RNA sequence: GUGGGUUACGGAGACAUCUACCCCAAAACCCUCCUGGGGAAGAUAGUGGGGGGUCUGUGUUGUAUAGCAGGAGUACUGGUGAUAGCCCUGCCCAUUCCUAUCAUUGUAAAUAAC
Numbered sequence: 001g002u003g004g005g006u007u008a009c010g011g012a013g014a015c016a017u018c019u020a021c022c023c024c025a026a027a028a029c030c031c032u033c034c035u036g037g038g039g040a041a042g043a044u045a046g047u048g049g050g051g052g053g054u055c056u057g058u059g060u061u062g063u064a065u066a067g068c069a070g071g072a073g074u075a076c077u078g079g080u081g082a083u084a085g086c087c088c089u090g091c092c093c094a095u096u097c098c099u100a101u102c103a104u105u106g107u108a109a110a111u112a113a114c
Stems, first nucleotide, its partner, number of pairs: 001114002004111001007108005013102002016099001020095001037077002040074001049063001051061001
RNA: Potassium channel RNA editing signal
Organism: Gadus morhua